RNA: Glycine riboswitch aptamer
Organism: Streptomyces kaniharaensis
RNA sequence: CGAACCCGCGCGGGAGAGCCCGGAGUGCCCCGUCUGGCGGCACAGCCGGCGCCGAAGGAGCAAGUCCUCCCCGGAAUCUCUCAGGCACCCCUACCGCACGGGUUAG
Dot-bracket structure: .....(((.((((......((((......................)))).(((((..(((.................))))).))).......)))).))).....